[Rfam]
RNA sequence: ACAAAAUAUCAGGAGCCACAGUAGAAAUAUUCACACCAUAGCUCUUGUUAGAUUCCGCUGAAUCUGUGAAUCCUGCC
Numbered sequence: 001a002c003a004a005a006a007u008a009u010c011a012g013g014a015g016c017c018a019c020a021g022u023a024g025a026a027a028u029a030u031u032c033a034c035a036c037c038a039u040a041g042c043u044c045u046u047g048u049u050a051g052a053u054u055c056c057g058c059u060g061a062a063u064c065u066g067u068g069a070a071u072c073c074u075g076c077c
Stems, first nucleotide, its partner, number of pairs: 012045005021076004026071001027039002049066007